[Rfam]
RNA sequence: UUGACCUUUUUCUAACUGCCAGAGUCUUUCAAAAGACUCGAAGCACAUUUUUUGGAGACUUGUCUAUUAGGACAAGUUU
Numbered sequence: 001u002u003g004a005c006c007u008u009u010u011u012c013u014a015a016c017u018g019c020c021a022g023a024g025u026c027u028u029u030c031a032a033a034a035g036a037c038u039c040g041a042a043g044c045a046c047a048u049u050u051u052u053u054g055g056a057g058a059c060u061u062g063u064c065u066a067u068u069a070g071g072a073c074a075a076g077u078u079u
Stems, first nucleotide, its partner, number of pairs: 022039003026035003057078009
A member of the RNA family "SmY spliceosomal RNA" from Steinernema hermaphroditum, 79 nucleotides long. The literature on the family includes a 2009 paper in RNA Biol by Jones et al., "A survey of nematode SmY RNAs".